[Rfam]
RNA sequence: CUCACGCUGUACGGCCAGACCGGCUCGGGCUCCAGCAGGGCCUCGUCGCCGAGGUGGUCGCCGUCGGCCAGGUGGCCGACCACGGCGUCCUCGCCGUACUUGCCGGUGCCGAUCCGGUCGACCUUGCCGUGCGCGAUGAGGUAGACCUCCUCGAUCGGCCGCCCGCGCUCGAUCAGCACCUCACCCGCGGCCACCUCCCGCUGGCCGAACCGGCUCGCCAGCUCCUCCAGCACCGCGUCGUCGUCGAACCCGCGCAGCACCGGCACCUCGCGGAGCGAGGGCGGCACCACCCGGACCUGCGAGCCGGUCUUGACGAAGCUCACCCGGCCCCGGCCGACGGCGUAGCUGAGCCGCCGGUUGACCCGGUAGGUGCCGCCCGAGACCUGUACCCAGGGCAGCAUCCGGCUGACCCAGCGCGAGCUGAUGCCCUGCAUCUGGGGCGCGGACUUGGUCGUGGUGGCGAGGUUCCGCGCCGCGAUGGUGCUGAGGCUGAGCUGGGUGCGCCCGCUCU
Number, nucleotide and partner (000 for none) at each position: 001c000002u000003c000004a000005c000006g390007c000008u388009g387010u386011a385012c000013g000014g000015c381016c000017a000018g328019a000020c327021c000022g325023g324024c000025u000026c000027g321028g320029g319030c318031u316032c315033c000034a000035g000036c312037a311038g310039g309040g308041c307042c306043u000044c000045g305046u302047c301048g300049c299050c000051g297052a000053g000054g233055u232056g000057g000058u229059c000060g227061c000062c000063g224064u000065c111066g110067g109068c108069c000070a000071g000072g000073u000074g000075g103076c000077c102078g101079a100080c000081c000082a097083c096084g095085g094086c093087g000088u000089c000090c000091u000092c000093g086094c085095c084096g083097u082098a000099c000100u079101u078102g077103c075104c000105g000106g000107u000108g068109c067110c066111g065112a000113u000114c000115c000116g000117g222118u221119c000120g219121a000122c217123c000124u000125u000126g000127c212128c000129g210130u209131g206132c000133g000134c203135g202136a000137u000138g199139a000140g197141g000142u000143a196144g195145a000146c000147c000148u000149c000150c000151u000152c000153g000154a000155u000156c000157g192158g191159c190160c189161g188162c187163c000164c000165g180166c000167g000168c000169u000170c000171g000172a000173u000174c000175a000176g000177c000178a000179c000180c165181u000182c000183a000184c000185c000186c000187g162188c161189g160190g159191c158192c157193a000194c000195c144196u143197c140198c000199c138200g000201c000202u135203g134204g000205c000206c131207g000208a000209a130210c129211c000212g127213g000214c000215u000216c000217g122218c000219c120220a000221g118222c117223u000224c063225c000226u000227c060228c000229a058230g000231c000232a055233c054234c000235g000236c294237g000238u000239c000240g290241u289242c000243g287244u286245c000246g000247a000248a000249c283250c000251c281252g000253c279254g000255c000256a000257g276258c275259a000260c000261c270262g269263g000264c000265a000266c000267c000268u000269c262270g261271c000272g000273g000274a000275g258276c257277g000278a000279g253280g000281g251282c000283g249284g000285c000286a244287c243288c000289a241290c240291c000292c000293g000294g236295a000296c000297c051298u000299g049300c048301g047302a046303g000304c000305c045306g042307g041308u040309c039310u038311u037312g036313a000314c000315g032316a031317a000318g030319c029320u028321c027322a000323c000324c023325c022326g000327g020328c018329c342330c000331c340332g000333g000334c000335c000336g000337a000338c000339g000340g331341c000342g329343u000344a000345g000346c000347u000348g000349a000350g000351c379352c000353g377354c000355c375356g374357g373358u000359u000360g000361a371362c370363c369364c000365g000366g000367u000368a000369g363370g362371u361372g000373c357374c356375g355376c000377c353378c000379g351380a000381g015382a000383c000384c000385u011386g010387u009388a008389c000390c006391c431392a430393g429394g428395g427396c426397a425398g000399c423400a422401u000402c000403c418404g417405g000406c000407u000408g000409a000410c000411c000412c000413a000414g000415c000416g000417c404418g403419a000420g000421c000422u400423g399424a000425u397426g396427c395428c394429c393430u392431g391432c000433a000434u000435c000436u000437g476438g000439g474440g473441c000442g471443c470444g469445g468446a467447c465448u464449u463450g000451g461452u460453c000454g000455u000456g000457g000458u000459g000460g452461c451462g000463a449464g448465g447466u000467u446468c445469c444470g443471c442472g000473c440474c439475g000476c437477g510478a509479u000480g505481g504482u503483g000484c499485u498486g000487a496488g495489g000490c000491u000492g000493a000494g000495c488496u487497g000498g485499g484500u000501g000502c000503g482504c481505c480506c000507g000508c000509u478510c477511u000
The record is a 511-nucleotide RNA from Kitasatospora sp. MMS16-BH015, which matches "Saccharopolyspora sRNA 350" in Rfam. The literature on the family includes a 2013 paper in PLoS One by Liu et al., "Prediction and characterization of small non-coding RNAs related to secondary metabolites in Saccharopolyspora erythraea". NCBI's taxonomy places the organism under Bacteria, Actinomycetota, Actinomycetes, Streptomycetaceae, Kitasatospora.